[Rfam]
RNA sequence: CCAAAAGUUUUCUAGGGUUCCGCAGCAGAUGCUGGUCUGGUCCGAGAGAAGACGCACGUUAUCGUGUACACGGCGGGACAAAAGCCCGGGAGGA
Numbered sequence: 001c002c003a004a005a006a007g008u009u010u011u012c013u014a015g016g017g018u019u020c021c022g023c024a025g026c027a028g029a030u031g032c033u034g035g036u037c038u039g040g041u042c043c044g045a046g047a048g049a050a051g052a053c054g055c056a057c058g059u060u061a062u063c064g065u066g067u068a069c070a071c072g073g074c075g076g077g078a079c080a081a082a083a084g085c086c087c088g089g090g091a092g093g094a
Base pairs, nucleotide, nucleotide: 007053008052009051010050011049012048015043016042020040021039022037023034024033025032026031054067055066056065057064058063069089071092075087076086077085
RNA: Guanidine-I riboswitch aptamer
Organism: Lentibacillus salicampi